Shown here is a 265-nucleotide RNA from Amborella trichopoda, a member of the family "RNase MRP". By type it is a ribozyme. Lineage of the source: Eukaryota > Viridiplantae > Spermatophyta > Amborellales > Amborella.
RNA sequence: GGGUCACCUGUUGAAGUUGGCUGGCCAUCUAACUCUGUGUAGGGUUAGGGUUGAGGAAAGUCCCCGGGCCAUGCGGCAGAGAUGCCAUCCCACUAAAUGGGAUAAAGUAGCCGGAAACUGCAUUCCUCAUUGGAGGGGGCUGAGACACGGUGGAGCCUUUGGUGGUUUCUGGCGAAACGGCUGGCCGUGAUUGACGACAGUUAUCAACUUCGCUCGCUGAAAAUCUUAAGCGGGUUAACUGAACGGGGCUUACAACAUUGUGACU
Numbered sequence: 001g002g003g004u005c006a007c008c009u010g011u012u013g014a015a016g017u018u019g020g021c022u023g024g025c026c027a028u029c030u031a032a033c034u035c036u037g038u039g040u041a042g043g044g045u046u047a048g049g050g051u052u053g054a055g056g057a058a059a060g061u062c063c064c065c066g067g068g069c070c071a072u073g074c075g076g077c078a079g080a081g082a083u084g085c086c087a088u089c090c091c092a093c094u095a096a097a098u099g100g101g102a103u104a105a106a107g108u109a110g111c112c113g114g115a116a117a118c119u120g121c122a123u124u125c126c127u128c129a130u131u132g133g134a135g136g137g138g139g140c141u142g143a144g145a146c147a148c149g150g151u152g153g154a155g156c157c158u159u160u161g162g163u164g165g166u167u168u169c170u171g172g173c174g175a176a177a178c179g180g181c182u183g184g185c186c187g188u189g190a191u192u193g194a195c196g197a198c199a200g201u202u203a204u205c206a207a208c209u210u211c212g213c214u215c216g217c218u219g220a221a222a223a224u225c226u227u228a229a230g231c232g233g234g235u236u237a238a239c240u241g242a243a244c245g246g247g248g249c250u251u252a253c254a255a256c257a258u259u260g261u262g263a264c265u
Stems, first nucleotide, its partner, number of pairs: 002265006009257003014210006022054001023052004028047001031046006058251003062248004075086004087103006105182001111172006125165002128162001137158004147151001212235006